[Rfam]
RNA sequence: AACGACCGGCCAGGCACGUGUGCCCGGCCCACAAGUGGAGGCUCCGAUCUCCCACCCGGCCAUCCUCAGGGGCGGCGGGUCAUCCGGUCAGGUGGCCACCAUCGUUCCGUACGGACGAUGGAGCCGCCCGAUGUGCGCCCCGCGGUAGACCGCGGCGGUGUUCCGGUUUUCUUGGAGCCCCGCCUGUGUCCGUCCGGGGCAUUUUUU
Number, nucleotide and partner (000 for none) at each position: 001a000002a000003c000004g089005a088006c087007c086008g085009g084010c000011c000012a000013g024014g000015c000016a000017c000018g000019u000020g000021u000022g000023c000024c013025c000026g081027g080028c079029c078030c077031a000032c058033a000034a000035g055036u054037g053038g052039a050040g049041g000042c000043u000044c000045c000046g000047a000048u000049c040050u039051c000052c038053c037054a036055c035056c000057c000058g032059g076060c075061c074062a000063u072064c071065c070066u000067c000068a000069g000070g065071g064072g063073c000074g061075g060076c059077g030078g029079g028080u027081c026082a000083u000084c009085c008086g007087g006088u005089c004090a000091g128092g127093u126094g125095g124096c000097c000098a000099c121100c120101a119102u118103c117104g116105u115106u114107c000108c000109g000110u000111a000112c000113g000114g106115a105116c104117g103118a102119u101120g100121g099122a000123g000124c095125c094126g093127c092128c091129c000130g000131a000132u000133g000134u000135g000136c000137g200138c199139c198140c197141c196142g195143c192144g191145g190146u000147a000148g000149a000150c000151c188152g187153c186154g184155g183156c182157g181158g180159u000160g178161u177162u176163c175164c174165g000166g000167u000168u000169u000170u000171c000172u000173u000174g164175g163176a162177g161178c160179c000180c158181c157182g156183c155184c154185u000186g153187u152188g151189u000190c145191c144192g143193u000194c000195c142196g141197g140198g139199g138200c137201a000202u000203u000204u000205u000206u000207u000

The family of this 207-nucleotide RNA from Streptomyces sp. SDr-06 is "Streptomyces RNA 1601". Taxonomically the source falls in Streptomyces (Bacteria, Actinomycetota, Kitasatosporales, Streptomycetaceae). Identified by deep sequencing of transcriptome at the end of exponential growth phase. Appears longer on northern blot than sequencing transcript. Streptomyces specific.